A member of the RNA family "mir-146 microRNA precursor family" from Hymenochirus boettgeri, 92 nucleotides long.

RNA sequence: AUGAGUUCUUAGCUCUGAGAACUGAAUUCCAUAGGUUGUUAAGGUUUAUUCAUAGACCUGUGGUUCUCAGUUCUGUAGCUUGGAACCCAAAC
Numbered sequence: 001a002u003g004a005g006u007u008c009u010u011a012g013c014u015c016u017g018a019g020a021a022c023u024g025a026a027u028u029c030c031a032u033a034g035g036u037u038g039u040u041a042a043g044g045u046u047u048a049u050u051c052a053u054a055g056a057c058c059u060g061u062g063g064u065u066c067u068c069a070g071u072u073c074u075g076u077a078g079c080u081u082g083g084a085a086c087c088c089a090a091a092c
Stems, first nucleotide, its partner, number of pairs: 008083002011080003018074008033059004
Record summary:
Its family is annotated with RISC complex and miRNA-mediated post-transcriptional gene silencing in the Gene Ontology. Lineage of the source: Eukaryota > Metazoa > Gnathostomata > Sarcopterygii > Hymenochirus. For this family Rfam cites "Identification of tissue-specific microRNAs from mouse" (Lagos-Quintana et al., Curr Biol, 2002). It scores 77 bits against the family's covariance model.